[Rfam]
RNA sequence: UGUUGCAAGUUUGAAGCCAUAGUAGAAGCACUCAUGGCAUGGCCCUGUCAGAUUGCAACGAAUCUGUGAAUUCUGCU
Numbered sequence: 001u002g003u004u005g006c007a008a009g010u011u012u013g014a015a016g017c018c019a020u021a022g023u024a025g026a027a028g029c030a031c032u033c034a035u036g037g038c039a040u041g042g043c044c045c046u047g048u049c050a051g052a053u054u055g056c057a058a059c060g061a062a063u064c065u066g067u068g069a070a071u072u073c074u075g076c077u
Stems, first nucleotide, its partner, number of pairs: 013045001016043003021077007028040001049066006

Mammalian CPEB3 ribozyme: a 77-nucleotide sequence from Alligator sinensis.
For this family Rfam cites "A genomewide search for ribozymes reveals an HDV-like sequence in the human CPEB3 gene" (Salehi-Ashtiani et al., Science, 2006).
A search with the family's covariance model found it, with a score of 40 bits.